[Rfam]
RNA sequence: GAACUUACAUAGUGAUAUGUAACUGAACUAAGAGAAGUCAGCUGAAGUCAUAGUACCAUCUAACGAUGGGAAGGAC
Number, nucleotide and partner (000 for none) at each position: 001g000002a024003a000004c000005u022006u021007a020008c019009a018010u017011a016012g000013u000014g000015a000016u011017a010018u009019g008020u007021a006022a005023c000024u002025g000026a000027a000028c000029u000030a000031a000032g000033a000034g000035a000036a000037g000038u045039c044040a000041g000042c000043u000044g039045a038046a000047g076048u075049c074050a000051u000052a000053g000054u000055a000056c069057c068058a067059u066060c065061u000062a000063a000064c000065g060066a059067u058068g057069g056070g000071a000072a000073g000074g049075a048076c047
This 76-nucleotide RNA belongs to the Rfam family "Group II catalytic intron D1-D4-1". For this family Rfam cites "Control of branch-site choice by a group II intron" (Chu et al., EMBO J, 2001).